[Rfam]
RNA: L17-Actino-Proteobacteria ribosomal protein leader
RNA sequence: CGGUGUCGCGUGUGCGACGCCGGCCCGACUUCGGUACCUGGUACGGCCGGGGCGG
Numbered sequence: 001c002g003g004u005g006u007c008g009c010g011u012g013u014g015c016g017a018c019g020c021c022g023g024c025c026c027g028a029c030u031u032c033g034g035u036a037c038c039u040g041g042u043a044c045g046g047c048c049g050g051g052g053c054g055g
Stems, first nucleotide, its partner, number of pairs: 001022009025055003029052007